[Rfam]
RNA sequence: UCCACAAGCAGGUCAGCCACUGACUAACGCACAUUGCGCCUGUUCCUUUUCCACUGUGCGUGUGACAGCGGCUAACCAGCUUUUCGGGGUAUCCGUC
Numbered sequence: 001u002c003c004a005c006a007a008g009c010a011g012g013u014c015a016g017c018c019a020c021u022g023a024c025u026a027a028c029g030c031a032c033a034u035u036g037c038g039c040c041u042g043u044u045c046c047u048u049u050u051c052c053a054c055u056g057u058g059c060g061u062g063u064g065a066c067a068g069c070g071g072c073u074a075a076c077c078a079g080c081u082u083u084u085c086g087g088g089g090u091a092u093c094c095g096u097c
Base pairs, nucleotide, nucleotide: 006082007081008080009079011077012076015073016072017071018070020068021067022066024064025062026061028060029059030058031057032056033055035053036052
Source information: The family of this 97-nucleotide RNA from Anguilla anguilla is "mir-210 microRNA precursor family". A search with the family's covariance model found it, with a score of 73 bits. Its family is annotated with RISC complex and miRNA-mediated post-transcriptional gene silencing in the Gene Ontology. The base pairs follow the family's consensus structure, which was predicted with WAR. Lineage of the source: Eukaryota > Teleostomi > Actinopteri > Teleostei > Anguilla.